[Rfam]
RNA: Small nucleolar RNA SNORA47
Nucleotides: 135
Stems, first nucleotide, its partner, number of pairs: 002060005015048004019042006079127003084123002088119002095114004102108001
Number, partner (000 for none) and nucleotide at each position: 001000u002060g003059g004058a005057g006056g007000a008000c009000u010000g011000a012000g013000a014000a015048g016047a017046u018045g019042a020041g021040g022039c023038a024037g025000a026000u027000g028000u029000g030000u031000a032000c033000c034000g035000u036000g037024c038023u039022g040021c041020c042019u043000u044000c045018c046017a047016u048015c049000g050000g051000u052000u053000a054000g055000c056006c057005c058004u059003c060002c061000a062000a063000c064000a065000g066000u067000g068000a069000a070000g071000g072000g073000u074000g075000g076000c077000c078000a079127g080126g081125c082000a083000g084123g085122g086000g087000a088119u089118g090000g091000c092000c093000c094000u095114c096113u097112g098111c099000a100000c101000a102108c103000u104000c105000g106000g107000a108102g109000g110000g111098g112097c113096a114095g115000c116000a117000c118089u119088g120000c121000a122085c123084u124000g125081g126080c127079c128000u129000a130000c131000a132000g133000u134000c135000a